[Rfam]
Nucleotides: 064
Stems, first nucleotide, its partner, number of pairs: 002063004015050009029039003
Number, partner (000 for none) and nucleotide at each position: 001000c002063u003062u004061g005060c006000a007000u008000u009000u010000g011000u012000g013000a014000a015050g016049a017048c018047a019046g020045g021044a022043a023042c024000g025000u026000a027000a028000a029039c030038u031037a032000u033000g034000u035000c036000c037031u038030a039029g040000g041000g042023g043022u044021u045020c046019c047018u048017g049016u050015c051000u052000g053000a054000u055000g056000u057000c058000u059000u060005g061004c062003a063002a064000u
This 64-nucleotide sequence from Urocolius indicus belongs to the Rfam family "Selenocysteine insertion sequence 1". Its family is annotated with selenocysteine incorporation in the Gene Ontology. The literature on the family includes a 2002 paper in Biochimie by Lambert et al., "A survey of metazoan selenocysteine insertion sequences".